This 83-nucleotide sequence from Python bivittatus belongs to the Rfam family "mir-181 microRNA precursor family". For this family Rfam cites "microRNAs: tiny regulators with great potential" (Ambros, Cell, 2001). The match comes from Rfam's covariance-model search (80 bits). The source organism's lineage runs through Eukaryota, Vertebrata, Teleostomi, Unidentata and Python.

RNA sequence: UAGCUUCAGCGAACAUUCAACGCUGUCGGUGAGUUUGACAUGUCAGGAUAAACCAUCGACCGUUGACUGUACCUUGAGGUUUA
Numbered sequence: 001u002a003g004c005u006u007c008a009g010c011g012a013a014c015a016u017u018c019a020a021c022g023c024u025g026u027c028g029g030u031g032a033g034u035u036u037g038a039c040a041u042g043u044c045a046g047g048a049u050a051a052a053c054c055a056u057c058g059a060c061c062g063u064u065g066a067c068u069g070u071a072c073c074u075u076g077a078g079g080u081u082u083a
Stems, first nucleotide, its partner, number of pairs: 001083003004079005014069002017066006025060007033053004